A member of the RNA family "Glycine riboswitch aptamer" from Streptomyces buecherae, 116 nucleotides long. Lineage of the source: Bacteria > Bacillati > Actinomycetota > Kitasatosporales > Streptomyces. The match comes from Rfam's covariance-model search (60 bits).
[Rfam]
RNA sequence: CGAAUCCAUGCGGGAGAGUUCCCGGACCAGCGAUGAUCCUCUCGAUCAGCCGCCCGGGGCGCCGAAGGAGCAAGUCCUCCCUUGAAUCUCUCAGGCCCCGAUACCGCGUGGAUGAG
Numbered sequence: 001c002g003a004a005u006c007c008a009u010g011c012g013g014g015a016g017a018g019u020u021c022c023c024g025g026a027c028c029a030g031c032g033a034u035g036a037u038c039c040u041c042u043c044g045a046u047c048a049g050c051c052g053c054c055c056g057g058g059g060c061g062c063c064g065a066a067g068g069a070g071c072a073a074g075u076c077c078u079c080c081c082u083u084g085a086a087u088c089u090c091u092c093a094g095g096c097c098c099c100g101a102u103a104c105c106g107c108g109u110g111g112a113u114g115a116g
Stems, first nucleotide, its partner, number of pairs: 006111008020059006061096003064092002068090003074083001